[Rfam]
RNA sequence: CAGCAGUACAAAGCGCCAGGACUGUGAACGGAUGAAACGUAUCGCAGUUGACGAGGAAGAGGUUCAUCGAACGAUUCGGCGGAUGCCUCUCGGUUGGUUCAUCACAACCGCAAGCUGCAGCCCAAAACGAGAAGGCGACUUUUCGAACAAAGGCUUCAGUAUUGAUGAAA
Numbered sequence: 001c002a003g004c005a006g007u008a009c010a011a012a013g014c015g016c017c018a019g020g021a022c023u024g025u026g027a028a029c030g031g032a033u034g035a036a037a038c039g040u041a042u043c044g045c046a047g048u049u050g051a052c053g054a055g056g057a058a059g060a061g062g063u064u065c066a067u068c069g070a071a072c073g074a075u076u077c078g079g080c081g082g083a084u085g086c087c088u089c090u091c092g093g094u095u096g097g098u099u100c101a102u103c104a105c106a107a108c109c110g111c112a113a114g115c116u117g118c119a120g121c122c123c124a125a126a127a128c129g130a131g132a133a134g135g136c137g138a139c140u141u142u143u144c145g146a147a148c149a150a151a152g153g154c155u156u157c158a159g160u161a162u163u164g165a166u167g168a169a170a
Stems, first nucleotide, its partner, number of pairs: 020049008029039001058090005067079004091110006114160004119155002128145007